[Rfam]
Nucleotides: 066
Base pairs, nucleotide, nucleotide: 001066002065003064004063005062006061007060008059009058010057011056012055022052023051024050025049026048
Number, partner (000 for none) and nucleotide at each position: 001066u002065u003064g004063a005062c006061c007060u008059u009058u010057u011056c012055c013000a014000u015000u016000u017000u018000u019000a020000u021000u022052c023051a024050c025049u026048c027000a028000c029000a030000g031000a032000g033000g034000g035000u036000g037000g038000g039000c040000c041000a042000g043000g044000a045000g046000g047000a048026g049025a050024g051023u052022g053000a054000a055012g056011g057010a058009a059008a060007a061006g062005g063004u064003u065002a066001a